[Rfam]
Nucleotides: 152
Base pairs, nucleotide, nucleotide: 004111006109008108009107010106011105016101017100018099019098028089031086032085033084035082050078051077052076053075054074058072059071060070124149125148126147127146128145129144130143131142132141133140134139
Number, partner (000 for none) and nucleotide at each position: 001000c002000u003000g004111g005000a006109g007000c008108a009107u010106g011105a012000c013000g014000a015000c016101a017100a018099u019098g020000a021000a022000c023000c024000g025000c026000a027000c028089c029000a030000c031086u032085c033084g034000u035082u036000u037000c038000a039000a040000c041000g042000g043000u044000c045000u046000a047000c048000u049000a050078c051077u052076a053075c054074u055000a056000a057000a058072c059071g060070c061000c062000u063000c064000u065000u066000u067000u068000g069000u070060g071059c072058g073000c074054g075053g076052u077051a078050g079000a080000c081000u082035g083000c084033u085032g086031g087000a088000c089028g090000a091000c092000g093000u094000u095000a096000a097000g098019c099018g100017u101016u102000a103000a104000g105011u106010c107009a108008u109006c110000a111004u112000c113000c114000a115000g116000u117000a118000a119000g120000a121000a122000u123000c124149a125148g126147a127146a128145c129144c130143c131142g132141c133140g134139c135000c136000g137000u138000u139134g140133c141132g142131c143130g144129g145128g146127u147126u148125u149124u150000u151000u152000u
The record is a 152-nucleotide sequence from Enterobacteriaceae bacterium strain FGI 57, which matches "Leucine operon leader" in Rfam.
The family's consensus secondary structure is taken from published work.
The family's RNA type in Rfam is cis-regulatory leader.
From the family's description: At least 6 amino acid operons are known to be regulated by attenuation.